[Rfam]
Nucleotides: 107
Stems, first nucleotide, its partner, number of pairs: 041100005057088008
Number, partner (000 for none) and nucleotide at each position: 001000g002000u003000a004000c005000c006000a007000u008000u009000g010000g011000g012000a013000u014000g015000a016000a017000u018000c019000a020000g021000u022000g023000g024000u025000c026000c027000c028000u029000g030000a031000c032000a033000u034000g035000a036000a037000a038000u039000u040000a041100u042099c043098g044097u045096c046000a047000u048000c049000u050000u051000c052000a053000c054000u055000u056000u057088g058087u059086c060085a061084g062083c063082u064081a065000a066000u067000c068000u069000a070000u071000u072000u073000u074000u075000u076000u077000c078000c079000u080000u081064u082063a083062g084061c085060u086059g087058a088057u089000c090000a091000u092000u093000a094000a095000u096045g097044a098043u099042g100041a101000a102000a103000u104000a105000u106000u107000u